[Rfam]
RNA: FMN riboswitch aptamer (RFN element)
RNA sequence: AUAGUUCUUCGGGGCAGGGUGAAAUUCCCGACCGGCGGUUAAAGUCCGCGAACUGCGUUAAGCAGUUGAUUUGGUGCAAUUCCAAAACCGACAGUAUAGUCUGGAUGAGAGAAGAAGACA
Numbered sequence: 001a002u003a004g005u006u007c008u009u010c011g012g013g014g015c016a017g018g019g020u021g022a023a024a025u026u027c028c029c030g031a032c033c034g035g036c037g038g039u040u041a042a043a044g045u046c047c048g049c050g051a052a053c054u055g056c057g058u059u060a061a062g063c064a065g066u067u068g069a070u071u072u073g074g075u076g077c078a079a080u081u082c083c084a085a086a087a088c089c090g091a092c093a094g095u096a097u098a099g100u101c102u103g104g105a106u107g108a109g110a111g112a113a114g115a116a117g118a119c120a
Base pairs, nucleotide, nucleotide: 005116006115007114008113009112010111017029018028019027031100032099033090034089035049036048037047038046044088045087052066053065054064070086071085072084073083074082092103093102094101